The record is a 182-nucleotide RNA sequence from Ogataea philodendri, which matches "Small nucleolar RNA snR43" in Rfam. On this family, see Balakin et al., Cell 1996: "The RNA world of the nucleolus: two major families of small RNAs defined by different box elements with related functions".
RNA sequence: CACUCCUGUUUCUGCCUCACAUUCCCCUUGCUCUAUGGAAUAAUGGGUUCUAAUUAUGGAGAAGAUCAAGCCUGUUAUUGGGUCCGCGAUUUGAUACUUUGUUGGAUUUUGAUGACAGGAUCGUGAAACGUCAAAUACCCGGGGUCAUCCUAUGGUGGCUCUGAAUUGCCGGUUCUACAUUC
Numbered sequence: 001c002a003c004u005c006c007u008g009u010u011u012c013u014g015c016c017u018c019a020c021a022u023u024c025c026c027c028u029u030g031c032u033c034u035a036u037g038g039a040a041u042a043a044u045g046g047g048u049u050c051u052a053a054u055u056a057u058g059g060a061g062a063a064g065a066u067c068a069a070g071c072c073u074g075u076u077a078u079u080g081g082g083u084c085c086g087c088g089a090u091u092u093g094a095u096a097c098u099u100u101g102u103u104g105g106a107u108u109u110u111g112a113u114g115a116c117a118g119g120a121u122c123g124u125g126a127a128a129c130g131u132c133a134a135a136u137a138c139c140c141g142g143g144g145u146c147a148u149c150c151u152a153u154g155g156u157g158g159c160u161c162u163g164a165a166u167u168g169c170c171g172g173u174u175c176u177a178c179a180u181u182c
Base pairs, nucleotide, nucleotide: 003061004060005059006058016047017046018045019044021041022040023039024038025037071119072118073117074116075115076114077113078112079111080110081109082108083106084105085104086103125175126174127173130170132168133167134166143159145158146157147156148155149154
Pairs were carried over by alignment from the consensus structure, which is taken from published work.